[Rfam]
RNA sequence: CCUAGAGGCGCAGCCGUUGGGGAGUAGCUUCCGACGCCAAGUCGGCCCCGCGUCAACACACUUGCGCUUCGGCGCAUGGCGCGGGGAGUGGAUCGCCACCUAGCGAGACCAGCGCAGACCGAGGCCUGUUCGGGCGUCUCGGCCUGUGCUGUCGUUCGCCCGGCGGAGUUCGAAAU
Number, nucleotide and partner (000 for none) at each position: 001c000002c000003u000004a000005g000006a000007g000008g000009c000010g000011c000012a000013g000014c000015c000016g000017u000018u000019g000020g000021g000022g000023a000024g000025u000026a000027g000028c000029u000030u000031c000032c044033g043034a042035c000036g000037c000038c000039a000040a000041g000042u034043c033044g032045g000046c086047c085048c084049c083050g082051c081052g080053u079054c078055a077056a000057c000058a000059c000060a000061c000062u000063u076064g075065c074066g073067c072068u000069u000070c000071g000072g067073c066074g065075c064076a063077u055078g054079g053080c052081g051082c050083g049084g048085g047086g046087a176088g000089u174090g171091g170092a000093u000094c000095g000096c000097c000098a000099c000100c000101u000102a000103g000104c000105g000106a000107g000108a000109c000110c000111a000112g000113c000114g000115c000116a000117g000118a000119c000120c000121g000122a000123g000124g000125c000126c000127u000128g000129u000130u000131c000132g000133g000134g000135c000136g000137u000138c000139u000140c000141g000142g000143c000144c000145u000146g000147u000148g000149c000150u000151g000152u000153c000154g000155u000156u000157c000158g000159c000160c000161c000162g000163g000164c000165g000166g000167a000168g000169u000170u091171c090172g000173a000174a089175a000176u087
A member of the RNA family "Manganese Mn2+ riboswitch aptamer (yybP-ykoY)" from Allosphingosinicella humi, 176 nucleotides long. The family has 29 seed sequences and 1,126 matches in Rfam 15.1. It scores 60 bits against the family's covariance model. Rfam's curators write: This RNA was originally discovered in E. coli during a large scale screen and was named SraF. The family was later found to exist upstream of related families of protein genes in many bacteria, including the the yybP and ykoK genes in B. subtilis. The specific functions of these proteins are unknown, but this structured RNA element may be involved in their genetic regulation as a riboswitch. A reference for the family is Argaman et al. (2001), "Novel small RNA-encoding genes in the intergenic regions of Escherichia coli", Curr Biol.